[Rfam]
Rfam assigns this 119-nucleotide RNA sequence from Oceanobacillus zhaokaii to the family "SAM riboswitch aptamer (S box leader)".
The source organism's lineage runs through Bacteria, Bacillati, Bacilli, Bacillaceae and Oceanobacillus.
RNA sequence: CUCUUAUCAAGAGUGGUGGAGGGAAUAGGCCCUUUGAAGCCCGGCAACCUUUAAGUUAGAUUUUCUAAUUUAUUACGGUGCCAAAUCCUACAGAUCUCACGUGAUCUGGUAGAUAAGAG
Numbered sequence: 001c002u003c004u005u006a007u008c009a010a011g012a013g014u015g016g017u018g019g020a021g022g023g024a025a026u027a028g029g030c031c032c033u034u035u036g037a038a039g040c041c042c043g044g045c046a047a048c049c050u051u052u053a054a055g056u057u058a059g060a061u062u063u064u065c066u067a068a069u070u071u072a073u074u075a076c077g078g079u080g081c082c083a084a085a086u087c088c089u090a091c092a093g094a095u096c097u098c099a100c101g102u103g104a105u106c107u108g109g110u111a112g113a114u115a116a117g118a119g
Stems, first nucleotide, its partner, number of pairs: 001119008013042001015041003021032003026090004043082004048078002052072007086111001091108006